[Rfam]
RNA sequence: UGUCUAUGCCCUCCUUGGGCGUUUCCUCCCUAGACUUGGACCGCGCAUCUGCGCGGUCUUUUUUUGUUUUCAGA
Dot-bracket structure: .......((((.....)))).................(((((((((....)))))))))...............
Numbered sequence: 001u002g003u004c005u006a007u008g009c010c011c012u013c014c015u016u017g018g019g020c021g022u023u024u025c026c027u028c029c030c031u032a033g034a035c036u037u038g039g040a041c042c043g044c045g046c047a048u049c050u051g052c053g054c055g056g057u058c059u060u061u062u063u064u065u066g067u068u069u070u071c072a073g074a
Stems, first nucleotide, its partner, number of pairs: 008020004038059009

Notes: This 74-nucleotide sequence from Phyllobacterium myrsinacearum belongs to the Rfam family "Makes More Granules Regulator RNA (mmgR)".